RNA sequence: GUUGUCGGAUUCACUUUAAUUCACGUGUGUUGGUGUGGAUUGGGGUGAAGUUUAGUUCAAAUUUUACUCCAGUCCACCUCAACACAUGUGGAUUGAUAUGAAUCCGACU
Numbered sequence: 001g002u003u004g005u006c007g008g009a010u011u012c013a014c015u016u017u018a019a020u021u022c023a024c025g026u027g028u029g030u031u032g033g034u035g036u037g038g039a040u041u042g043g044g045g046u047g048a049a050g051u052u053u054a055g056u057u058c059a060a061a062u063u064u065u066a067c068u069c070c071a072g073u074c075c076a077c078c079u080c081a082a083c084a085c086a087u088g089u090g091g092a093u094u095g096a097u098a099u100g101a102a103u104c105c106g107a108c109u
Base pairs, nucleotide, nucleotide: 004108005107006106007105008104009103010102011101012100013099016096017095018094019093020092021091022090023089024088025087026086027085028084029083030082031081032080035077036076037075038074039073040072041071042070043069045067046066047065

Shown here is a 109-nucleotide sequence from Sorghum bicolor, a member of the family "MIR5565 microRNA precursor family". The family's consensus secondary structure was predicted with RNAalifold. Rfam links the family to the GO terms RISC complex and miRNA-mediated post-transcriptional gene silencing. The match comes from Rfam's covariance-model search (107 bits).